Shown here is a 60-nucleotide RNA sequence, a member of the family "GP20-b RNA". The family's RNA type in Rfam is cis-regulatory element. Pairs were carried over by alignment from the consensus structure, which is taken from published work.
[Rfam]
RNA sequence: GGCCUAUCUGCGGGCCUAAAACGCAGGACGGCGGGAGACGGCGACCUCCUAAAACGCCUA
Numbered sequence: 001g002g003c004c005u006a007u008c009u010g011c012g013g014g015c016c017u018a019a020a021a022c023g024c025a026g027g028a029c030g031g032c033g034g035g036a037g038a039c040g041g042c043g044a045c046c047u048c049c050u051a052a053a054a055c056g057c058c059u060a
Stems, first nucleotide, its partner, number of pairs: 001016004008026005034049004